Actino-pnp RNA: a 74-nucleotide RNA from Gordonia crocea. A search with the family's covariance model found it, with a score of 56 bits. Taxonomically the source falls in Gordonia (Bacteria, Actinomycetota, Actinomycetes, Mycobacteriales). The base pairs follow the family's consensus structure, which is taken from published work.
RNA sequence: AUCGGUCCUCGGUAGUGGCCGCCGGAACGAGCGGAAUCAUCCUCACCUUCCGGCUGCUUCGAUCGAAGGCCGUC
Numbered sequence: 001a002u003c004g005g006u007c008c009u010c011g012g013u014a015g016u017g018g019c020c021g022c023c024g025g026a027a028c029g030a031g032c033g034g035a036a037u038c039a040u041c042c043u044c045a046c047c048u049u050c051c052g053g054c055u056g057c058u059u060c061g062a063u064c065g066a067a068g069g070c071c072g073u074c
Base pairs, nucleotide, nucleotide: 003072004071005070006069007068009066010065011064012063013062017058018057019056021054022053023052024051025050026049027048029046